Shown here is a 108-nucleotide RNA from Plutella xylostella, a member of the family "mir-8517 microRNA precursor family". The match comes from Rfam's covariance-model search (86 bits). The organism belongs to Plutella, within Eukaryota. Rfam links the family to the GO terms miRNA-mediated post-transcriptional gene silencing and RISC complex.
RNA sequence: UUAGAUGAUGUUUUAGCUAUUUUACUGUUUUGUCCCUCUCUGUCAAGAAAUAAAUUAUUCUUUGACAAAGAUGCACAAAACAGUUCAAUAGCUAAAACAUCCUCUAAC
Numbered sequence: 001u002u003a004g005a006u007g008a009u010g011u012u013u014u015a016g017c018u019a020u021u022u023u024a025c026u027g028u029u030u031u032g033u034c035c036c037u038c039u040c041u042g043u044c045a046a047g048a049a050a051u052a053a054a055u056u057a058u059u060c061u062u063u064g065a066c067a068a069a070g071a072u073g074c075a076c077a078a079a080a081c082a083g084u085u086c087a088a089u090a091g092c093u094a095a096a097a098c099a100u101c102c103u104c105u106a107a108c
Stems, first nucleotide, its partner, number of pairs: 001107005011097011024084005029069006049059004